[Rfam]
RNA sequence: UGACGACCGUUCCUCCUACUGCUUGAAGGUCUAGCAGCUAGGAUUUUAGGUUGUCACAGAUCACAACGGGUUCUUUUUCACCCAGAGUUCACCAGGUAGCGGGGCUGCCCCUGUGAACGCUGGAAUUUGCGGGACCCUACACAA
Numbered sequence: 001u002g003a004c005g006a007c008c009g010u011u012c013c014u015c016c017u018a019c020u021g022c023u024u025g026a027a028g029g030u031c032u033a034g035c036a037g038c039u040a041g042g043a044u045u046u047u048a049g050g051u052u053g054u055c056a057c058a059g060a061u062c063a064c065a066a067c068g069g070g071u072u073c074u075u076u077u078u079c080a081c082c083c084a085g086a087g088u089u090c091a092c093c094a095g096g097u098a099g100c101g102g103g104g105c106u107g108c109c110c111c112u113g114u115g116a117a118c119g120c121u122g123g124a125a126u127u128u129g130c131g132g133g134a135c136c137c138u139a140c141a142c143a144a
Stems, first nucleotide, its partner, number of pairs: 001056008014043005020036004069136006082123004087118005095109004

Small nucleolar RNA SNORA79: a 144-nucleotide sequence from Conger conger. The base pairs follow the family's consensus structure, which was predicted with RNAalifold. A reference for the family is Schattner et al. (2006), "A computational screen for mammalian pseudouridylation guide H/ACA RNAs", RNA. ACA65 (SNORA79) is a member of the H/ACA class of snoRNAs that guide the sites of modification of uridines to pseudouridines. By type it is an H/ACA-box small nucleolar RNA. A search with the family's covariance model found it, with a score of 100 bits.